RNA sequence: ACUGGUGAUUGCCAUCAGCGAGGUAUAGAGUUCCUACGUUGCGUGUGCGAAAUUGGUAGGAACUUCAUACCGUGCUCUUGGCUAGCCGUG
Number, nucleotide and partner (000 for none) at each position: 001a000002c000003u000004g000005g000006u000007g000008a000009u000010u000011g000012c081013c080014a079015u000016c000017a076018g075019c074020g073021a000022g071023g070024u069025a068026u067027a000028g065029a064030g063031u062032u061033c060034c059035u058036a057037c056038g000039u000040u000041g000042c000043g000044u000045g000046u000047g000048c000049g000050a000051a000052a000053u000054u000055g000056g037057u036058a035059g034060g033061a032062a031063c030064u029065u028066c000067a026068u025069a024070c023071c022072g000073u020074g019075c018076u017077c000078u000079u014080g013081g012082c000083u000084a000085g000086c000087c000088g000089u000090g000
This 90-nucleotide sequence from Aedes aegypti belongs to the Rfam family "mir-276 microRNA precursor family". A reference for the family is Skalsky et al. (2010), "Identification of microRNAs expressed in two mosquito vectors, Aedes albopictus and Culex quinquefasciatus", BMC Genomics.